[Rfam]
RNA sequence: ACACCAAUAUUUGCUCCCGCUAACCAAGACCUAUGGGAGGAUAAAUUACGUCUUUCAUAUCCAUCAGUGAAGGGAUUGAUGGAAAUAAAGUAUCGC
Numbered sequence: 001a002c003a004c005c006a007a008u009a010u011u012u013g014c015u016c017c018c019g020c021u022a023a024c025c026a027a028g029a030c031c032u033a034u035g036g037g038a039g040g041a042u043a044a045a046u047u048a049c050g051u052c053u054u055u056c057a058u059a060u061c062c063a064u065c066a067g068u069g070a071a072g073g074g075a076u077u078g079a080u081g082g083a084a085a086u087a088a089a090g091u092a093u094c095g096c
Base pairs, nucleotide, nucleotide: 014039015038016037017036018035026054027053028052029051030050061082062081063080064079065078066077067076
Shown here is a 96-nucleotide RNA sequence, a member of the family "PhotoRC-II RNA". The family's consensus secondary structure is taken from published work. It is one of the family's seed sequences.